[Rfam]
RNA sequence: UGGAAGUGAUGACAUAGAGAUCAUUGGAUGUGCCUUUGAAUGGGGGGGUGUGUGGUAACUGGGGUUUAAACCCAGCUGGGCUGGGGGGUGGGGGAUGUGUGUGUGGUGUGUGGGUGUGGGAAAGGCUUUGACUGGGGGCACUGAUGGUGCAGUGCUGCUUUCCGGAGUGCAUCUGAGGCGUGUUGCGAAGCUCCGGGGUGCUCCUGGCAACACUGCCGAUGAUUAAACCCCACACAAGCCCACCAGGAGGAGCCUGGGCAUCCUGCUUCUCUGACAGCUUCACUGAGGCCAGUGAAGCUGUGUGCUGAUCCAA
Numbered sequence: 001u002g003g004a005a006g007u008g009a010u011g012a013c014a015u016a017g018a019g020a021u022c023a024u025u026g027g028a029u030g031u032g033c034c035u036u037u038g039a040a041u042g043g044g045g046g047g048g049u050g051u052g053u054g055g056u057a058a059c060u061g062g063g064g065u066u067u068a069a070a071c072c073c074a075g076c077u078g079g080g081c082u083g084g085g086g087g088g089u090g091g092g093g094g095a096u097g098u099g100u101g102u103g104u105g106g107u108g109u110g111u112g113g114g115u116g117u118g119g120g121a122a123a124g125g126c127u128u129u130g131a132c133u134g135g136g137g138g139c140a141c142u143g144a145u146g147g148u149g150c151a152g153u154g155c156u157g158c159u160u161u162c163c164g165g166a167g168u169g170c171a172u173c174u175g176a177g178g179c180g181u182g183u184u185g186c187g188a189a190g191c192u193c194c195g196g197g198g199u200g201c202u203c204c205u206g207g208c209a210a211c212a213c214u215g216c217c218g219a220u221g222a223u224u225a226a227a228c229c230c231c232a233c234a235c236a237a238g239c240c241c242a243c244c245a246g247g248a249g250g251a252g253c254c255u256g257g258g259c260a261u262c263c264u265g266c267u268u269c270u271c272u273g274a275c276a277g278c279u280u281c282a283c284u285g286a287g288g289c290c291a292g293u294g295a296a297g298c299u300g301u302g303u304g305c306u307g308a309u310c311c312a313a
Stems, first nucleotide, its partner, number of pairs: 001312004181212006187205001189202003193198001
Rfam assigns this 313-nucleotide sequence from Dryobates pubescens to the family "Small Cajal body-specific RNA 7". A reference for the family is Darzacq et al. (2002), "Cajal body-specific small nuclear RNAs: a novel class of 2'-O-methylation and pseudouridylation guide RNAs", EMBO J. Pairs were carried over by alignment from the consensus structure. NCBI's taxonomy places the organism under Eukaryota, Chordata, Archosauria, Telluraves, Dryobates. Gene Ontology terms of the family: RNA processing and nucleolus. The family has 18 seed sequences and 570 matches in Rfam 15.1.